[Rfam]
RNA sequence: GUGAGUCGCUGAAUUAGAGAUCGGCUGCUCGAAUUCAUUUAAAUUUAUUGGAGUAUAUUAUGUCUCUAAGCGUAGAAGCUAAAGCUGAGAUCGUUGCUAAAUAUGGUCGUGAUGCU
Numbered sequence: 001g002u003g004a005g006u007c008g009c010u011g012a013a014u015u016a017g018a019g020a021u022c023g024g025c026u027g028c029u030c031g032a033a034u035u036c037a038u039u040u041a042a043a044u045u046u047a048u049u050g051g052a053g054u055a056u057a058u059u060a061u062g063u064c065u066c067u068a069a070g071c072g073u074a075g076a077a078g079c080u081a082a083a084g085c086u087g088a089g090a091u092c093g094u095u096g097c098u099a100a101a102u103a104u105g106g107u108c109g110u111g112a113u114g115c116u
Stems, first nucleotide, its partner, number of pairs: 008025005048069006
Rfam assigns this 116-nucleotide RNA sequence from bacteria symbiont BFo2 of Frankliniella occidentalis to the family "Ribosomal S15 leader". NCBI's taxonomy places the organism under Bacteria, Pseudomonadati, Pseudomonadota, Gammaproteobacteria, Enterobacterales. From the family's description: The E. coli Ribosomal S15 gene 5' UTR can form two alternative structures. The family is grouped with related families in Rfam's "Ribosomal Protein S15 Leader clan". It scores 96 bits against the family's covariance model. The family's consensus secondary structure is taken from published work. On this family, see Benard et al., Biochimie 1996: "Pseudoknot and translational control in the expression of the S15 ribosomal protein". Rfam links the family to the GO term regulation of translation, ncRNA-mediated.